RNA sequence: UGACCCUAUGGGUCACCUAGCCAACUGACGUUGUUAGUGAACAAAGUAUUCACAAGAAUAGCCAAUAGACACUUUCUACUGGCUUUUUUUUU
Numbered sequence: 001u002g003a004c005c006c007u008a009u010g011g012g013u014c015a016c017c018u019a020g021c022c023a024a025c026u027g028a029c030g031u032u033g034u035u036a037g038u039g040a041a042c043a044a045a046g047u048a049u050u051c052a053c054a055a056g057a058a059u060a061g062c063c064a065a066u067a068g069a070c071a072c073u074u075u076c077u078a079c080u081g082g083c084u085u086u087u088u089u090u091u092u
Stems, first nucleotide, its partner, number of pairs: 001015006031061004037053005043047001062082003066078004
This 92-nucleotide RNA from Vibrio aquimaris belongs to the Rfam family "Qrr RNA".
The base pairs follow the family's consensus structure, which is taken from published work.
The organism belongs to Vibrio, within Bacteria.
The family's RNA type in Rfam is small RNA.
Its family is annotated with quorum sensing in the Gene Ontology.
Rfam's curators write: This family represents a set of small RNAs (the Qrr RNAs) that are thought to be involved in the regulation of quorum sensing in Vibrio species. It is believed that these RNAs, guided by a protein, Hfq, can mediate the destabilisation of the quorum-sensing master regulators LuxR/HapR mRNAs.